A member of the RNA family "U4 spliceosomal RNA" from Amphiprion percula, 134 nucleotides long. The literature on the family includes a 2019 paper in Science by Charenton et al., "Mechanism of 5' splice site transfer for human spliceosome activation". U4 small nuclear RNA (U4 snRNA) is a component of the major U2-dependent spliceosome.

RNA sequence: GUCCUUUUCUAGCGGCACUGUGUUAGCCUAUGAGGUGUAUUUGAGGUGUGAUUAUUGCUAUUUAAAAACUUCAACCCACCUUGAUGACUUGAAAAAUAGUCCAUAGAUGCCAUUUUUGCGGUUCUCUGAGGAGA
Numbered sequence: 001g002u003c004c005u006u007u008u009c010u011a012g013c014g015g016c017a018c019u020g021u022g023u024u025a026g027c028c029u030a031u032g033a034g035g036u037g038u039a040u041u042u043g044a045g046g047u048g049u050g051a052u053u054a055u056u057g058c059u060a061u062u063u064a065a066a067a068a069c070u071u072c073a074a075c076c077c078a079c080c081u082u083g084a085u086g087a088c089u090u091g092a093a094a095a096a097u098a099g100u101c102c103a104u105a106g107a108u109g110c111c112a113u114u115u116u117u118g119c120g121g122u123u124c125u126c127u128g129a130g131g132a133g134a
Stems, first nucleotide, its partner, number of pairs: 020052002024048001026047003034042002079109001081106003086101004123134004